[Rfam]
RNA: UnaL2 LINE 3' element
Organism: Salmo trutta
Nucleotides: 054
Base pairs, nucleotide, nucleotide: 013043014041015040016039022034023033024032025031
Number, partner (000 for none) and nucleotide at each position: 001000u002000g003000c004000a005000a006000u007000a008000g009000u010000u011000g012000u013043u014041g015040u016039a017000a018000g019000u020000c021000a022034c023033u024032u025031u026000g027000g028000a029000u030000a031025a032024a033023a034022g035000c036000a037000u038000c039016u040015g041014c042000u043013a044000a045000a046000u047000g048000g049000c050000a051000u052000a053000u054000a